[Rfam]
RNA sequence: GAUAGGUCUCUGUCGCUACCGUGAUUGGACACUGACGCACAGUCAACUAGCCUUGUUCAGGCGGUCUCCGCGCGUGGAACCGAGGCGUUCCGAGCCACGAGGGGGGAGGCUCGGAGCGUCUCGU
Numbered sequence: 001g002a003u004a005g006g007u008c009u010c011u012g013u014c015g016c017u018a019c020c021g022u023g024a025u026u027g028g029a030c031a032c033u034g035a036c037g038c039a040c041a042g043u044c045a046a047c048u049a050g051c052c053u054u055g056u057u058c059a060g061g062c063g064g065u066c067u068c069c070g071c072g073c074g075u076g077g078a079a080c081c082g083a084g085g086c087g088u089u090c091c092g093a094g095c096c097a098c099g100a101g102g103g104g105g106g107a108g109g110c111u112c113g114g115a116g117c118g119u120c121u122c123g124u
Stems, first nucleotide, its partner, number of pairs: 001014005015051004021032003033045004058074001061071004075082002084120013098105001
Description:
Shown here is a 124-nucleotide RNA sequence from Streptomyces venezuelae, a member of the family "Streptomyces RNA 3920". Identified by deep sequencing of transcriptome at the end of exponential growth phase. Sequencing size consistent with northern blot size. Streptomyces specific.